[Rfam]
RNA sequence: AUCCCCUGGCAAUGGGCAAGGAGAAACCUCAUUGGUGGUGUUGCUCUUUUAUCAAUCAGGGGCAAAGCAGAUGUACAGUCCUUAGUUCAUCCUAGCUUGAUGCCUGUGUUGGUGGCCAGAGCUGUUUCAUGCCUGAAGCACACAC
Numbered sequence: 001a002u003c004c005c006c007u008g009g010c011a012a013u014g015g016g017c018a019a020g021g022a023g024a025a026a027c028c029u030c031a032u033u034g035g036u037g038g039u040g041u042u043g044c045u046c047u048u049u050u051a052u053c054a055a056u057c058a059g060g061g062g063c064a065a066a067g068c069a070g071a072u073g074u075a076c077a078g079u080c081c082u083u084a085g086u087u088c089a090u091c092c093u094a095g096c097u098u099g100a101u102g103c104c105u106g107u108g109u110u111g112g113u114g115g116c117c118a119g120a121g122c123u124g125u126u127u128c129a130u131g132c133c134u135g136a137a138g139c140a141c142a143c144a145c
Base pairs, nucleotide, nucleotide: 003062004061005060006059007058008057013054014053015052019048020047021046023042024041026039027038028037085139086138087137099133101131105129106128110124111123113121
RNA: Small nucleolar RNA SNORA48